[Rfam]
RNA sequence: CCAGACGGCCGGAUGGCCGCCUUCGGCGCUCUUGGGCGCCGGGGGAGGAAAGUCCGGGCUCCACGGAAACAGGGUGCCGGAUAACGCCCGGCGGGGGCGACCCCAGGGAAAGUGCCACAGAAAGCAAACCGCCCUGCGUAGCGCCGAGAGGCGCGCAGCAGGGUAAGGGUGAAAGGGUGCGGUAAGAGCGCACCGCGCCCCCGGCAACGGGGGCGGCACGGCAAACCCCACCCGGAGCAAGAUCAAGUAGGGACGGCCGGCCGGUUCUUCGGAAUGCGGCCACGCGGGUUUCCGCGCCGCCGUCCGGGUCGAUCGCGCGAGGCGCCCGGCAACGGGCGUCCCAGAUGAAUGGCCAUCCAUGCGGGUCCGCCCGCGGGACAGAACCCGGCUUACAGGCCGUCUGGCGUU
Number, nucleotide and partner (000 for none) at each position: 001c404002c403003a402004g401005a400006c399007g398008g397009c396010c395011g393012g357013a356014u355015g354016g353017c352018c351019g000020c045021c044022u043023u042024c041025g040026g039027c038028g037029c000030u000031c000032u000033u000034g000035g000036g000037c028038g027039c026040c025041g024042g023043g022044g021045g020046a000047g000048g000049a000050a391051a390052g389053u000054c388055c387056g386057g385058g384059c237060u236061c235062c234063a000064c000065g000066g000067a291068a000069a290070c000071a000072g233073g232074g231075u230076g229077c091078c090079g089080g088081a000082u000083a000084a000085c000086g000087c000088c080089c079090g078091g077092c106093g104094g103095g102096g101097g000098c000099g000100a000101c096102c095103c094104c093105a000106g092107g228108g227109a000110a000111a000112g226113u225114g222115c221116c220117a000118c000119a000120g000121a000122a000123a000124g000125c000126a000127a000128a000129c168130c167131g164132c163133c162134c161135u160136g159137c158138g000139u000140a000141g000142c000143g000144c000145c000146g000147a000148g000149a000150g000151g000152c000153g000154c000155g000156c000157a000158g137159c136160a135161g134162g133163g132164u131165a000166a000167g130168g129169g000170u000171g000172a000173a000174a000175g000176g194177g193178u192179g191180c190181g189182g000183u000184a000185a000186g000187a000188g000189c181190g180191c179192a178193c177194c176195g217196c215197g214198c213199c212200c211201c210202c209203g208204g000205c000206a000207a000208c203209g202210g201211g200212g199213g198214c197215g196216g000217c195218a000219c000220g116221g115222c114223a000224a000225a113226c112227c108228c107229c076230a075231c074232c073233c072234g062235g061236a060237g059238c000239a000240a000241g314242a313243u312244c311245a000246a000247g000248u000249a000250g000251g305252g304253a303254c302255g301256g300257c000258c000259g000260g000261c000262c000263g000264g000265u000266u000267c000268u000269u000270c000271g000272g000273a000274a000275u000276g000277c000278g000279g000280c000281c000282a000283c296284g295285c294286g293287g292288g000289u000290u069291u067292c287293c286294g285295c284296g283297c000298c000299g000300c256301c255302g254303u253304c252305c251306g000307g000308g000309u000310c000311g244312a243313u242314c241315g000316c000317g000318c000319g000320a000321g340322g339323c338324g337325c336326c335327c334328g333329g000330c000331a000332a000333c328334g327335g326336g325337c324338g323339u322340c321341c000342c000343a000344g000345a000346u000347g000348a000349a000350u000351g018352g017353c016354c015355a014356u013357c012358c000359a000360u000361g000362c000363g000364g000365g000366u000367c000368c000369g000370c000371c000372c000373g000374c000375g000376g000377g000378a000379c000380a000381g000382a000383a000384c058385c057386c056387g055388g054389c052390u051391u050392a000393c011394a000395g010396g009397c008398c007399g006400u005401c004402u003403g002404g001405c000406g000407u000408u000
This 408-nucleotide RNA sequence from a Kiloniellaceae bacterium belongs to the Rfam family "Bacterial RNase P class A".
A search with the family's covariance model found it, with a score of 290 bits.
Its family is annotated with ribonuclease P activity, dimeric ribonuclease P complex and tRNA processing in the Gene Ontology.
From the family's description: Ribonuclease P (RNase P) is a ubiquitous endoribonuclease, found in archaea, bacteria and eukarya as well as chloroplasts and mitochondria. Its best characterised activity is the generation of mature 5'-ends of tRNAs by cleaving the 5'-leader elements of precursor-tRNAs. Cellular RNase Ps are ribonucleoproteins. RNA from bacterial RNase Ps retains its catalytic activity in the absence of the protein subunit, i.e. it is a ribozyme.
The organism belongs to Kiloniellaceae, within Bacteria.